[Rfam]
Nucleotides: 063
Base pairs, nucleotide, nucleotide: 003051004050005049006048007047008046009045
Number, partner (000 for none) and nucleotide at each position: 001000a002000a003051a004050a005049u006048c007047a008046a009045u010000g011000c012000u013000a014000a015000c016000a017000g018000u019000a020000a021000g022000a023000c024000u025000g026000a027000a028000g029000a030000a031000a032000g033000a034000g035000a036000a037000a038000u039000u040000a041000a042000g043000g044000a045009a046008u047007u048006g049005a050004u051003u052000c053000c054000a055000u056000u057000u058000a059000c060000c061000a062000u063000a

The record is a 63-nucleotide sequence from Neogale vison, which matches "Bacillus-plasmid RNA" in Rfam.
Rfam 15.1 lists 155 matches to the family in 128 species.
It is annotated as a small RNA.